[Rfam]
RNA sequence: GGCAAAAUGAUGAAAACUUUAUUAUCUGAAAAUGAUGUGGAACCCAUGUCAUUCUGGUCUUCAAAGUUCUCUGAUUGCU
Numbered sequence: 001g002g003c004a005a006a007a008u009g010a011u012g013a014a015a016a017c018u019u020u021a022u023u024a025u026c027u028g029a030a031a032a033u034g035a036u037g038u039g040g041a042a043c044c045c046a047u048g049u050c051a052u053u054c055u056g057g058u059c060u061u062c063a064a065a066g067u068u069c070u071c072u073g074a075u076u077g078c079u
Base pairs, nucleotide, nucleotide: 001079002078003077004076005075
RNA: Small nucleolar RNA R160